RNA sequence: UGGAAACAAAGGCAAACCCGUUGAAAAGCGGGGACGCAAAGCUACAGGGGCUAAGGCGGAGUUGUAUCCGCGAUGCCAGCCAGCUGCUCGA
Numbered sequence: 001u002g003g004a005a006a007c008a009a010a011g012g013c014a015a016a017c018c019c020g021u022u023g024a025a026a027a028g029c030g031g032g033g034a035c036g037c038a039a040a041g042c043u044a045c046a047g048g049g050g051c052u053a054a055g056g057c058g059g060a061g062u063u064g065u066a067u068c069c070g071c072g073a074u075g076c077c078a079g080c081c082a083g084c085u086g087c088u089c090g091a
Stems, first nucleotide, its partner, number of pairs: 012037002017032006040085004047081002049077003056071004